[Rfam]
RNA sequence: CUGUGGUGCAUUGUAGUUGCAUUGCAUGUGUCACAGAGGUGUGCAAUGCCUCUGCAGUGCAGCCCAG
Numbered sequence: 001c002u003g004u005g006g007u008g009c010a011u012u013g014u015a016g017u018u019g020c021a022u023u024g025c026a027u028g029u030g031u032c033a034c035a036g037a038g039g040u041g042u043g044c045a046a047u048g049c050c051u052c053u054g055c056a057g058u059g060c061a062g063c064c065c066a067g
Stems, first nucleotide, its partner, number of pairs: 001067003006063001007061010019049001021047007
RNA: mir-33 microRNA precursor family